[Rfam]
RNA: Archaeal signal recognition particle RNA
Organism: Haloplanus vescus
RNA sequence: AAGUGGACUAGGUCGGGCAGUUAGGCCCUGCUCGUACUUCCCGCACUACGGUCUUGAGCGGGGACCGAACCCGGGGGCGUCCGGUCAGACCGGUUCGGGCCUCGGGAGCCAACGUGGAAGCCUCGUCCUUCGGGGACAGCGGUCCGCGGCGUGCGUCCGCAGGGGCGCUCCGUCGCGGUUCGUCGGUGGCAUUGGGUCAGGCGCGGAAGCGAGCAGCCCACCGCCGGACGCCAGUCGCUCGACGGAUCGCGGGGUGGAGGAGGCGACCGGGACUCCCCGGAGCGGAACGCCGGGCAAUCCCGUUGUCCGCAU
Numbered sequence: 001a002a003g004u005g006g007a008c009u010a011g012g013u014c015g016g017g018c019a020g021u022u023a024g025g026c027c028c029u030g031c032u033c034g035u036a037c038u039u040c041c042c043g044c045a046c047u048a049c050g051g052u053c054u055u056g057a058g059c060g061g062g063g064a065c066c067g068a069a070c071c072c073g074g075g076g077g078c079g080u081c082c083g084g085u086c087a088g089a090c091c092g093g094u095u096c097g098g099g100c101c102u103c104g105g106g107a108g109c110c111a112a113c114g115u116g117g118a119a120g121c122c123u124c125g126u127c128c129u130u131c132g133g134g135g136a137c138a139g140c141g142g143u144c145c146g147c148g149g150c151g152u153g154c155g156u157c158c159g160c161a162g163g164g165g166c167g168c169u170c171c172g173u174c175g176c177g178g179u180u181c182g183u184c185g186g187u188g189g190c191a192u193u194g195g196g197u198c199a200g201g202c203g204c205g206g207a208a209g210c211g212a213g214c215a216g217c218c219c220a221c222c223g224c225c226g227g228a229c230g231c232c233a234g235u236c237g238c239u240c241g242a243c244g245g246a247u248c249g250c251g252g253g254g255u256g257g258a259g260g261a262g263g264c265g266a267c268c269g270g271g272a273c274u275c276c277c278c279g280g281a282g283c284g285g286a287a288c289g290c291c292g293g294g295c296a297a298u299c300c301c302g303u304u305g306u307c308c309g310c311a312u
Base pairs, nucleotide, nucleotide: 001312003310004309005308006307007306008305011066012065013064014063015033016032017031018030019029020028040062041061042060043059044058046056072302073301074300075299076298079295080294081293082292083290090285091284092283094281095280096279097278098277099276101271102270103269104268105267108264109263110262113259115257120255121254122253123252124251125250126249127245128244130242131241132240133239134238135236136235137234139232140230141229142180144178145177146176147175148174149173150172151171153168154167155166156165157164158163183227184226185225186224187223188222189221193220194219195218196217197216202211203210204209